[Rfam]
RNA sequence: UGAGAGAACGAUGUUGAAGGAACUCGGCAAAAUACCUCCGUAAGUUCGCGAGAAGGAGGCCCAGUUACCAGGCAACUGGUGGCUGGGGGCACAAACUAGGGGGUGGCGACUGUUUACUAAAAACACAGGGCUCUGCGAAGUCGCAAGACGACGUAUAGGGUCUGACGCCUGCCCGGUGCCGGAAGGUUAAAAGGAGAAGUGCAAGCUUUGAAUUGAAGCCCCGGUAAACGGCGGCCGUAACUAUAACGGUCCUAAGGUAGCGAAAUUCCUUGUCGGGUAAGUUCCGACCUGCACGAAUGGCGUAACGACUUCCCCGCUGUCUCCAACAUCGACUCA
Numbered sequence: 001u002g003a004g005a006g007a008a009c010g011a012u013g014u015u016g017a018a019g020g021a022a023c024u025c026g027g028c029a030a031a032a033u034a035c036c037u038c039c040g041u042a043a044g045u046u047c048g049c050g051a052g053a054a055g056g057a058g059g060c061c062c063a064g065u066u067a068c069c070a071g072g073c074a075a076c077u078g079g080u081g082g083c084u085g086g087g088g089g090c091a092c093a094a095a096c097u098a099g100g101g102g103g104u105g106g107c108g109a110c111u112g113u114u115u116a117c118u119a120a121a122a123a124c125a126c127a128g129g130g131c132u133c134u135g136c137g138a139a140g141u142c143g144c145a146a147g148a149c150g151a152c153g154u155a156u157a158g159g160g161u162c163u164g165a166c167g168c169c170u171g172c173c174c175g176g177u178g179c180c181g182g183a184a185g186g187u188u189a190a191a192a193g194g195a196g197a198a199g200u201g202c203a204a205g206c207u208u209u210g211a212a213u214u215g216a217a218g219c220c221c222c223g224g225u226a227a228a229c230g231g232c233g234g235c236c237g238u239a240a241c242u243a244u245a246a247c248g249g250u251c252c253u254a255a256g257g258u259a260g261c262g263a264a265a266u267u268c269c270u271u272g273u274c275g276g277g278u279a280a281g282u283u284c285c286g287a288c289c290u291g292c293a294c295g296a297a298u299g300g301c302g303u304a305a306c307g308a309c310u311u312c313c314c315c316g317c318u319g320u321c322u323c324c325a326a327c328a329u330c331g332a333c334u335c336a
Base pairs, nucleotide, nucleotide: 001336002335003334004333009331010330011329012328013327014326015325016324018322019321020320035059036058037057038056039055044049060087061086062085063084064083065082066081067080068079069078070077071076088092100315101314102313103312105310106309107307108306111125112124113123128163129162130161131160132159133158134157135156136153140149141148142147166302167301168300169299171232172231173230176229177228178225179224180223181222182221185220186219187218191214192213196209197208198207199206200205233251234250235249236248237247238246252256262289272288273287274286275285276284277283
Bacterial large subunit ribosomal RNA: a 336-nucleotide part of an RNA from Palleronia marisminoris. Lineage of the source: Bacteria > Pseudomonadota > Rhodobacterales > Roseobacteraceae > Palleronia. A search with the family's covariance model found it, with a score of 2658 bits.